[Rfam]
RNA sequence: GUAUCAAUCCUCUACGAGGCUGACGGGGUUUGCAACG
Numbered sequence: 001g002u003a004u005c006a007a008u009c010c011u012c013u014a015c016g017a018g019g020c021u022g023a024c025g026g027g028g029u030u031u032g033c034a035a036c037g
Base pairs, nucleotide, nucleotide: 001036002035005032006031007030009028010027011026012025

Shown here is a 37-nucleotide RNA from Thermus parvatiensis, a member of the family "CRISPR RNA direct repeat element".
Its family is annotated with defense response in the Gene Ontology.
NCBI's taxonomy places the organism under Bacteria, Deinococci, Thermales, Thermaceae, Thermus.